[Rfam]
RNA sequence: GACUACCUGGGAUGUUCGCCAGCAAGCCGAUGUCCCUGAGCCGAUGCUAGUAAUCUAGGGGUUCACUGCGUGACCAUUGUGCAAGCUCGACCAGUAUCGAGAAGCCUUAAGUCACGCUUAUUGCGCCCCGCCUUGAACCAGUGGGUUCAAGGGCCAAGGCACCGCAGCGGCAUUCUGGGUAGUCA
Numbered sequence: 001g002a003c004u005a006c007c008u009g010g011g012a013u014g015u016u017c018g019c020c021a022g023c024a025a026g027c028c029g030a031u032g033u034c035c036c037u038g039a040g041c042c043g044a045u046g047c048u049a050g051u052a053a054u055c056u057a058g059g060g061g062u063u064c065a066c067u068g069c070g071u072g073a074c075c076a077u078u079g080u081g082c083a084a085g086c087u088c089g090a091c092c093a094g095u096a097u098c099g100a101g102a103a104g105c106c107u108u109a110a111g112u113c114a115c116g117c118u119u120a121u122u123g124c125g126c127c128c129c130g131c132c133u134u135g136a137a138c139c140a141g142u143g144g145g146u147u148c149a150a151g152g153g154c155c156a157a158g159g160c161a162c163c164g165c166a167g168c169g170g171c172a173u174u175c176u177g178g179g180u181a182g183u184c185a
Base pairs, nucleotide, nucleotide: 002183003182004181005180006179007178008177009176010175011174012173013172014171015170017169018168019167032154033153034152035151037149038148039147040146041145042144058129059128060127063120068117069116070115071114072113073112074111081105082104086101087100088099089098090097
The family of this 185-nucleotide sequence from Pseudidiomarina indica is "6S / SsrS RNA". The family's RNA type in Rfam is non-coding RNA gene. The family's consensus secondary structure is taken from published work. It scores 107 bits against the family's covariance model. Rfam describes the family as follows. E. coli 6S RNA was the first non coding RNA to be sequenced, but its function was unknown until recently. It consists of 184 nucleotides that fold into an extended hairpin structure with a large single-stranded internal bulge. The 6S RNA specifically associates with RNA polymerase holoenzyme containing the sigma70 specificity factor. This interaction represses expression from a sigma70-dependent promoter during stationary phase. 6S RNA homologs have recently been identified in most bacterial genomes.